Background: Rfam assigns this 164-nucleotide RNA from Medicago truncatula to the family "MIR2606 microRNA precursor family". Gene Ontology terms of the family: RISC complex and miRNA-mediated post-transcriptional gene silencing. The organism belongs to Medicago, within Eukaryota.
RNA sequence: AAAACUUAGGUACAAUUCUUUAGGUGCUUUUCGUAUGGUUCUUAAUUAAAUUCACCGUAAUUUCCUUAAUUCCAUAAUUUUCUCAUAGUUUGUUAUAUCUAAAAAAUAUGUAUUUCUAUUUAAGAACCAUACGAAAAGCACCUAAGGAAUUGUACCUAAGUUUU
Numbered sequence: 001a002a003a004a005c006u007u008a009g010g011u012a013c014a015a016u017u018c019u020u021u022a023g024g025u026g027c028u029u030u031u032c033g034u035a036u037g038g039u040u041c042u043u044a045a046u047u048a049a050a051u052u053c054a055c056c057g058u059a060a061u062u063u064c065c066u067u068a069a070u071u072c073c074a075u076a077a078u079u080u081u082c083u084c085a086u087a088g089u090u091u092g093u094u095a096u097a098u099c100u101a102a103a104a105a106a107u108a109u110g111u112a113u114u115u116c117u118a119u120u121u122a123a124g125a126a127c128c129a130u131a132c133g134a135a136a137a138g139c140a141c142c143u144a145a146g147g148a149a150u151u152g153u154a155c156c157u158a159a160g161u162u163u164u
Stems, first nucleotide, its partner, number of pairs: 002163007010155004015150011027138017045120001047118002050115001